[Rfam]
RNA sequence: UUUGUGAGCUGAUGACGCAAUUUAAGGGAUUUACCAAAGCAACAGCAAUGCUGAAUUUUUUAUUUGCAUGUCAGUCUGAUCCCAAA
Dot-bracket structure: ((((.((........................................................................)).))))
Numbered sequence: 001u002u003u004g005u006g007a008g009c010u011g012a013u014g015a016c017g018c019a020a021u022u023u024a025a026g027g028g029a030u031u032u033a034c035c036a037a038a039g040c041a042a043c044a045g046c047a048a049u050g051c052u053g054a055a056u057u058u059u060u061u062a063u064u065u066g067c068a069u070g071u072c073a074g075u076c077u078g079a080u081c082c083c084a085a086a
Stems, first nucleotide, its partner, number of pairs: 001086004006081002